[Rfam]
RNA sequence: GGGCCGCUAGCUCAACGGCAGAGCACUCGGCUCAUAACCGACGGGUUCUGGGUUCGAAUCCCGGGCGGCCCA
Numbered sequence: 001g002g003g004c005c006g007c008u009a010g011c012u013c014a015a016c017g018g019c020a021g022a023g024c025a026c027u028c029g030g031c032u033c034a035u036a037a038c039c040g041a042c043g044g045g046u047u048c049u050g051g052g053u054u055c056g057a058a059u060c061c062c063g064g065g066c067g068g069c070c071c072a
Stems, first nucleotide, its partner, number of pairs: 001071007010024004027041004048064005
The record is a 72-nucleotide RNA sequence from Oscillochloris trichoides, which matches "tRNA" in Rfam. Transfer RNA (tRNA) molecules are approximately 80 nucleotides in length. Gene Ontology term of the family: triplet codon-amino acid adaptor activity. Rfam classes the family as a transfer RNA. Pairs were carried over by alignment from the consensus structure, which is taken from published work. Lineage of the source: Bacteria > Chloroflexota > Chloroflexales > Oscillochloris > Oscillochloris trichoides.